[Rfam]
RNA sequence: GACUUGGUCUCACGAGCGAGCUUAAGCCGAUAGGCGGAGGCGGAGCGAAAGCGAGUCUGAACAGGGCGUUCAGUUCGUGGGAUCAGACCCGAAACCGAGUGAUCUAGCCAUGGCCAGGCUGAAGGCUGGGUAGCACCAGCUGGAGGGCCGAACCCACACCUGUUGAAAAAGGUCGGGAUGAGCUGUGGCUAGGGGUGAAAGGCCAAUCAAACUCGGAAAUAGCUGGUU
Numbered sequence: 001g002a003c004u005u006g007g008u009c010u011c012a013c014g015a016g017c018g019a020g021c022u023u024a025a026g027c028c029g030a031u032a033g034g035c036g037g038a039g040g041c042g043g044a045g046c047g048a049a050a051g052c053g054a055g056u057c058u059g060a061a062c063a064g065g066g067c068g069u070u071c072a073g074u075u076c077g078u079g080g081g082a083u084c085a086g087a088c089c090c091g092a093a094a095c096c097g098a099g100u101g102a103u104c105u106a107g108c109c110a111u112g113g114c115c116a117g118g119c120u121g122a123a124g125g126c127u128g129g130g131u132a133g134c135a136c137c138a139g140c141u142g143g144a145g146g147g148c149c150g151a152a153c154c155c156a157c158a159c160c161u162g163u164u165g166a167a168a169a170a171g172g173u174c175g176g177g178a179u180g181a182g183c184u185g186u187g188g189c190u191a192g193g194g195g196u197g198a199a200a201g202g203c204c205a206a207u208c209a210a211a212c213u214c215g216g217a218a219a220u221a222g223c224u225g226g227u228u
Base pairs, nucleotide, nucleotide: 005085006084007083008082009081010080011079012078013077014076015075016074017073020041021040022039023038026035027034028033045052046051055067056066057065058064088226089225091223095216096215097214098213099212100211104192105191106190107189108188109187110186111185112184113183114182115180117149118148119147120146124141125140126139127138128137129136153177154176155175158173159172160171161170194204195203196202
Dot-bracket structure: ....(((((((((((((..((((..(((....)))..))))...((....))..((((.....)))).....)))))))))))))..((.(...((((((...((((((((((((.((((...((((((......))))))....))))...(((..((((........)))).)))..).))))))))))).(((.....)))......))))))......).))..
The family of this 228-nucleotide part of an RNA from Rubellimicrobium thermophilum is "Bacterial large subunit ribosomal RNA". The organism belongs to Rubellimicrobium thermophilum, within Bacteria. The base pairs follow the family's consensus structure, which is taken from published work. It scores 2599 bits against the family's covariance model.